[Rfam]
RNA sequence: UGGUUGUAGCUAAAUCAAAGUUCUUAUAGAAGUUUAUUGGCCGGUUGUUGUGAAAUCUCUUUGAUUUCUCUCUAUCAACUAAUCUGCUUACCGAACUUCUCACAUUC
Numbered sequence: 001u002g003g004u005u006g007u008a009g010c011u012a013a014a015u016c017a018a019a020g021u022u023c024u025u026a027u028a029g030a031a032g033u034u035u036a037u038u039g040g041c042c043g044g045u046u047g048u049u050g051u052g053a054a055a056u057c058u059c060u061u062u063g064a065u066u067u068c069u070c071u072c073u074a075u076c077a078a079c080u081a082a083u084c085u086g087c088u089u090a091c092c093g094a095a096c097u098u099c100u101c102a103c104a105u106u107c
Stems, first nucleotide, its partner, number of pairs: 028100007039088003043084004047079004
This 107-nucleotide sequence from Quercus lobata belongs to the Rfam family "Small nucleolar RNA snoR109". It is annotated as an H/ACA-box small nucleolar RNA. The family's consensus secondary structure was predicted with WAR. The match comes from Rfam's covariance-model search (78 bits). The literature on the family includes a 2002 paper in Curr Biol by Marker et al., "Experimental RNomics: identification of 140 candidates for small non-messenger RNAs in the plant Arabidopsis thaliana".